The record is a 73-nucleotide RNA from Anisakis simplex, which matches "mir-1175 microRNA precursor family" in Rfam. Gene Ontology terms of the family: miRNA-mediated post-transcriptional gene silencing and RISC complex. The source organism's lineage runs through Eukaryota, Metazoa, Eumetazoa, Ecdysozoa and Anisakis simplex complex. The base pairs follow the family's consensus structure, which was predicted with RNAalifold. A search with the family's covariance model found it, with a score of 55 bits.

[Rfam]
RNA sequence: UCAAUGAAGUGGAGGAUCGGGUCUGCACUGAGUAUUUUAUUGCAGUGAGAUUCUCAUUCCUCCAUUUAGCUGA
Numbered sequence: 001u002c003a004a005u006g007a008a009g010u011g012g013a014g015g016a017u018c019g020g021g022u023c024u025g026c027a028c029u030g031a032g033u034a035u036u037u038u039a040u041u042g043c044a045g046u047g048a049g050a051u052u053c054u055c056a057u058u059c060c061u062c063c064a065u066u067u068a069g070c071u072g073a
Stems, first nucleotide, its partner, number of pairs: 008067002010064007017056001022050002026047005